The family of this 145-nucleotide RNA from Pseudanabaena sp. SR411 is "c-di-AMP riboswitch aptamer (ydaO/yuaA leader)".
RNA sequence: UCUAAGUUAUUACCUAAAGUAAAACAAAAAACGGGGGAACCAAGUUCUCUAAGAGCAUAGGGGCGUAUUUUCAGAAUGAAUCUGAAAAAGGACAUCUCUCAGUCCUAGCCCGUCAGCUAACCUCGUAGGCAGUGAGAGAAGACUG
Numbered sequence: 001u002c003u004a005a006g007u008u009a010u011u012a013c014c015u016a017a018a019g020u021a022a023a024a025c026a027a028a029a030a031a032c033g034g035g036g037g038a039a040c041c042a043a044g045u046u047c048u049c050u051a052a053g054a055g056c057a058u059a060g061g062g063g064c065g066u067a068u069u070u071u072c073a074g075a076a077u078g079a080a081u082c083u084g085a086a087a088a089a090g091g092a093c094a095u096c097u098c099u100c101a102g103u104c105c106u107a108g109c110c111c112g113u114c115a116g117c118u119a120a121c122c123u124c125g126u127a128g129g130c131a132g133u134g135a136g137a138g139a140a141g142a143c144u145g
Stems, first nucleotide, its partner, number of pairs: 011131001013129002020028001031126006041060001061111003069087004090105004

Pairs were carried over by alignment from the consensus structure. NCBI's taxonomy places the organism under Bacteria, Bacillati, Cyanophyceae, Pseudanabaenales, Pseudanabaena. It scores 73 bits against the family's covariance model.